[Rfam]
RNA sequence: CCGUUAACUAUCGUAUGGAAGACUAGUGAUUUUGUUGUUUUAAAAAAAAAUGUAUUUUCCUAACAAAAAGUCUCUAGUCUUCUUACGAAAGUAUCGA
Numbered sequence: 001c002c003g004u005u006a007a008c009u010a011u012c013g014u015a016u017g018g019a020a021g022a023c024u025a026g027u028g029a030u031u032u033u034g035u036u037g038u039u040u041u042a043a044a045a046a047a048a049a050a051u052g053u054a055u056u057u058u059c060c061u062a063a064c065a066a067a068a069a070g071u072c073u074c075u076a077g078u079c080u081u082c083u084u085a086c087g088a089a090a091g092u093a094u095c096g097a
Base pairs, nucleotide, nucleotide: 002096003095005093006092008091009090011088012087013086014085015084017082018081020080021079022078023077026074028072029071030070031069032068035066036065037064038063039062
mir-7 microRNA precursor family: a 97-nucleotide RNA from Aphis craccivora. A reference for the family is Lagos-Quintana et al. (2001), "Identification of novel genes coding for small expressed RNAs", Science. This family represents the microRNA (miRNA) precursor mir-7.